[Rfam]
RNA sequence: CUUCGUUGGUGGCGUACCUCCCUUUCGCGGGCGGUGUAAUCGCAUACCUGUCAUCUGACACUGCAGAUUCUCCAAGCCCGCCGUUACGCGGGCUUUUUUAU
Numbered sequence: 001c002u003u004c005g006u007u008g009g010u011g012g013c014g015u016a017c018c019u020c021c022c023u024u025u026c027g028c029g030g031g032c033g034g035u036g037u038a039a040u041c042g043c044a045u046a047c048c049u050g051u052c053a054u055c056u057g058a059c060a061c062u063g064c065a066g067a068u069u070c071u072c073c074a075a076g077c078c079c080g081c082c083g084u085u086a087c088g089c090g091g092g093c094u095u096u097u098u099u100a101u
Stems, first nucleotide, its partner, number of pairs: 009043004014037005020031003075094007
Rfam assigns this 101-nucleotide sequence from Serratia odorifera to the family "Tryptophan operon leader". The base pairs follow the family's consensus structure, which is taken from published work. At least 6 amino acid operons are known to be regulated by attenuation. In each a leader sequence of 150-200 bp is found upstream of the first gene in the operon. This leader sequence can assume two different secondary structures known as the terminator and the anti-terminator structure. In each case the leader also codes for very short peptide sequence that is rich in the end product amino acid of the operon. The terminator structure is recognised as a termination signal for RNA polymerase and the operon is not transcribed. This structure forms when the cell has an excess of the regulatory amino acid and ribosome movement over the leader transcript is not impeded. When there is a deficiency of the charged tRNA of the regulatory amino acid the ribosome translating the leader peptide stalls and the antiterminator structure can form. This allows RNA polymerase to transcribe the operon. In the Rfam alignment the consensus structure is of the terminator structure. The organism belongs to Serratia odorifera, within Bacteria. The literature on the family includes a 1982 paper in Annu Rev Genet by Kolter and Yanofsky, "Attenuation in amino acid biosynthetic operons". The match comes from Rfam's covariance-model search (73 bits).